[Rfam]
RNA sequence: GCCCCCGUGGACGAAUGGUUAAGUCACUGCUCUUUCAAAGCUGAGAUGCGAGUUCAAUUCUCGUCGGGGGAA
Numbered sequence: 001g002c003c004c005c006c007g008u009g010g011a012c013g014a015a016u017g018g019u020u021a022a023g024u025c026a027c028u029g030c031u032c033u034u035u036c037a038a039a040g041c042u043g044a045g046a047u048g049c050g051a052g053u054u055c056a057a058u059u060c061u062c063g064u065c066g067g068g069g070g071a072a
Base pairs, nucleotide, nucleotide: 002070003069004068005067006066007065010025011024012023027043029041030040031039048064049063050062051061052060
Shown here is a 72-nucleotide sequence from Cylindrospermum sp. NIES-4074, a member of the family "tRNA". From the family's description: Transfer RNA (tRNA) molecules are approximately 80 nucleotides in length. The base pairs follow the family's consensus structure, which is taken from published work.